[Rfam]
Source information
Rfam assigns this 364-nucleotide part of an RNA from Leucobacter chromiisoli to the family "Bacterial large subunit ribosomal RNA".
RNA sequence: CGAGAGAAUCACGGUGAAGGAACUCGGCAAAAUGCCCCCGUAACUUCGGGAGAAGGGGGGCCAUCCGCUUAUACCGCCUUGCGUGGGAAAGGGUGUGGUGGCCGCAGAGACCAGUGGGAAGCGACUGUUUACUAAAAACACAGGUCCGUGCGAACACGCAAGUGGAUGUAUACGGACUGACGCCUGCCCGGUGCUGGAAGGUUAAGAGGAGAGGUUAGACCCUUGGGUCGAAGCUUUGAAUUUAAGCCCCAGUAAACGGCGGUGGUAACUAUAACCAUCCUAAGGUAGCGAAAUUCCUUGUCGGGUAAGUUCCGACCUGCACGAAUGGCGUAACGACUUCCCAGCUGUCUCCACCGUGAACUCG
Number, nucleotide and partner (000 for none) at each position: 001c364002g363003a362004g361005a000006g000007a000008a000009u359010c358011a357012c356013g355014g354015u353016g352017a000018a350019g349020g348021a000022a000023c000024u000025c000026g000027g000028c000029a000030a000031a000032a000033u000034g000035c059036c058037c057038c056039c055040g000041u000042a000043a000044c049045u000046u000047c000048g000049g044050g000051a000052g000053a000054a000055g039056g038057g037058g036059g035060g102061c101062c100063a099064u098065c097066c000067g000068c000069u000070u000071a000072u000073a000074c000075c000076g000077c092078c091079u090080u089081g000082c087083g000084u000085g000086g000087g082088a000089a080090a079091g078092g077093g000094u000095g000096u000097g065098g064099u063100g062101g061102c060103c107104g000105c000106a000107g103108a000109g000110a000111c000112c000113a000114g000115u343116g342117g341118g340119a339120a338121g337122c335123g334124a000125c000126u140127g139128u138129u000130u000131a000132c000133u000134a000135a000136a000137a000138a128139c127140a126141c000142a000143g178144g177145u176146c175147c174148g173149u172150g171151c168152g000153a000154a000155c164156a163157c162158g000159c000160a000161a000162g157163u156164g155165g000166a000167u000168g151169u000170a000171u150172a149173c148174g147175g146176a145177c144178u143179g000180a000181c330182g329183c328184c327185u000186g260187c259188c258189c000190g000191g257192u256193g253194c252195u251196g250197g249198a000199a000200g248201g247202u246203u000204a000205a000206g242207a241208g000209g000210a000211g237212a236213g235214g234215u233216u000217a000218g229219a228220c227221c226222c000223u000224u000225g000226g221227g220228u219229c218230g000231a000232a000233g215234c214235u213236u212237u211238g000239a000240a000241u207242u206243u000244a000245a000246g202247c201248c200249c197250c196251a195252g194253u193254a000255a000256a192257c191258g188259g187260c186261g279262g278263u277264g276265g275266u274267a000268a000269c000270u000271a000272u000273a000274a266275c265276c264277a263278u262279c261280c284281u000282a000283a000284g280285g000286u000287a000288g000289c000290g317291a000292a000293a000294u000295u000296c000297c000298u000299u000300g316301u315302c314303g313304g312305g311306u000307a000308a000309g000310u000311u305312c304313c303314g302315a301316c300317c290318u000319g000320c000321a000322c000323g000324a000325a000326u000327g184328g183329c182330g181331u000332a000333a000334c123335g122336a000337c121338u120339u119340c118341c117342c116343a115344g000345c000346u000347g000348u020349c019350u018351c000352c016353a015354c014355c013356g012357u011358g010359a009360a000361c004362u003363c002364g001
It scores 2755 bits against the family's covariance model.